[Rfam]
RNA sequence: GGUUUGGUAGCUCAGUUGGUUAGAGCGUCUGAUUGAAGAUCAGAAGGUCGGCAGUUCGAUUCUGCCCCAAACCA
Numbered sequence: 001g002g003u004u005u006g007g008u009a010g011c012u013c014a015g016u017u018g019g020u021u022a023g024a025g026c027g028u029c030u031g032a033u034u035g036a037a038g039a040u041c042a043g044a045a046g047g048u049c050g051g052c053a054g055u056u057c058g059a060u061u062c063u064g065c066c067c068c069a070a071a072c073c074a
Base pairs, nucleotide, nucleotide: 001073002072003071004070005069006068007067010026011025012024013023028044029043030042031041032040050066051065052064053063054062
This 74-nucleotide sequence from endosymbiont GvMRE of Glomus versiforme belongs to the Rfam family "tRNA".
The family's RNA type in Rfam is transfer RNA.
NCBI's taxonomy places the organism under Bacteria, Bacillati, Mycoplasmatota, Mollicutes, Mycoplasmatales.
The base pairs follow the family's consensus structure, which is taken from published work.
On this family, see Hou, Trends Biochem Sci 1993: "The tertiary structure of tRNA and the development of the genetic code".